[Rfam]
RNA: Bacterial small signal recognition particle RNA
RNA sequence: GGUGGACCCCGCGCGGCGUCUAUCCUGUGAACUCCCCCAGGGCCGGAAGGCAGCAAGGGUCAAUGGGCUCUGGCGGGUGCGCGGGGUCCCCCAUA
Numbered sequence: 001g002g003u004g005g006a007c008c009c010c011g012c013g014c015g016g017c018g019u020c021u022a023u024c025c026u027g028u029g030a031a032c033u034c035c036c037c038c039a040g041g042g043c044c045g046g047a048a049g050g051c052a053g054c055a056a057g058g059g060u061c062a063a064u065g066g067g068c069u070c071u072g073g074c075g076g077g078u079g080c081g082c083g084g085g086g087u088c089c090c091c092c093a094u095a
Stems, first nucleotide, its partner, number of pairs: 004089010014077001017075004024067005034059003042051003